[Rfam]
c-di-GMP-I riboswitch aptamer: a 92-nucleotide RNA from Rhodoferax fermentans. Lineage of the source: Bacteria > Pseudomonadati > Betaproteobacteria > Burkholderiales > Rhodoferax. The match comes from Rfam's covariance-model search (58 bits). The family's consensus secondary structure is taken from published work.
RNA sequence: UGGCUUUUUUGGCACACUUGAGCGAAAGCCAAGGUCGCAAAGCCUCCGGUCUGACACCUGCCACAGGCAGAAAAGACAGCGGGGUUGCCGAA
Numbered sequence: 001u002g003g004c005u006u007u008u009u010u011g012g013c014a015c016a017c018u019u020g021a022g023c024g025a026a027a028g029c030c031a032a033g034g035u036c037g038c039a040a041a042g043c044c045u046c047c048g049g050u051c052u053g054a055c056a057c058c059u060g061c062c063a064c065a066g067g068c069a070g071a072a073a074a075g076a077c078a079g080c081g082g083g084g085u086u087g088c089c090g091a092a
Stems, first nucleotide, its partner, number of pairs: 012038002017033004022029002041086004046082003049077003057070001